This 126-nucleotide RNA sequence from Anolis carolinensis belongs to the Rfam family "U4atac minor spliceosomal RNA".
A search with the family's covariance model found it, with a score of 109 bits.
From the family's description: U4atac is an essential component of the minor U12-type spliceosome complex which is required for removal of the rarer class of eukaryotic introns (AT-AC, U12-type).
A reference for the family is Lorkovic et al. (2005), "Evolutionary conservation of minor U12-type spliceosome between plants and humans", RNA.
[Rfam]
RNA sequence: ACCGUCCUUAUCUUGGGGUUGCGCUACUGUUCAAUGAACGUAUAGUGAGAACAGUACUGCUAACGCCUACACAACACUUGAGCAUCCCUGGGGUCUAGGCCCCAACGUGGUGCAAUUUUUGGAAUC
Numbered sequence: 001a002c003c004g005u006c007c008u009u010a011u012c013u014u015g016g017g018g019u020u021g022c023g024c025u026a027c028u029g030u031u032c033a034a035u036g037a038a039c040g041u042a043u044a045g046u047g048a049g050a051a052c053a054g055u056a057c058u059g060c061u062a063a064c065g066c067c068u069a070c071a072c073a074a075c076a077c078u079u080g081a082g083c084a085u086c087c088c089u090g091g092g093g094u095c096u097a098g099g100c101c102c103c104a105a106c107g108u109g110g111u112g113c114a115a116u117u118u119u120u121g122g123a124a125u126c
Stems, first nucleotide, its partner, number of pairs: 006018004021060003026055007038046002082113005089104006